[Rfam]
RNA sequence: GGGACAUGAUGAGUGGUCAUUUCUCGCAAAUAGCAAUGCGAGAUGGGUGUCCGUCCCAUUGCCAGUUACGACAAUACGGGCACUCCCAUUUGUACUGAUCUGAUCCC
Dot-bracket structure: ((((.........((((.....(((((..........)))))..(((((((...........(.((.......))..))))))))........))))......))))
Numbered sequence: 001g002g003g004a005c006a007u008g009a010u011g012a013g014u015g016g017u018c019a020u021u022u023c024u025c026g027c028a029a030a031u032a033g034c035a036a037u038g039c040g041a042g043a044u045g046g047g048u049g050u051c052c053g054u055c056c057c058a059u060u061g062c063c064a065g066u067u068a069c070g071a072c073a074a075u076a077c078g079g080g081c082a083c084u085c086c087c088a089u090u091u092g093u094a095c096u097g098a099u100c101u102g103a104u105c106c107c
Stems, first nucleotide, its partner, number of pairs: 001107004014097004023042005045085007063078001065075002
Background: Shown here is a 107-nucleotide RNA from Manihot esculenta, a member of the family "Small nucleolar RNA Z279/snoR105/snoR108". Taxonomically the source falls in Manihot (Eukaryota, Streptophytina, Magnoliopsida, Pentapetalae). This family includes the plant snoRNAs known as Z279, snoR105 and snoR108. The family is grouped with related families in Rfam's "snoU13 clan". The base pairs follow the family's consensus structure, which was predicted with PFOLD. On this family, see Marker et al., Curr Biol 2002: "Experimental RNomics: identification of 140 candidates for small non-messenger RNAs in the plant Arabidopsis thaliana". Gene Ontology terms of the family: nucleolus and RNA processing.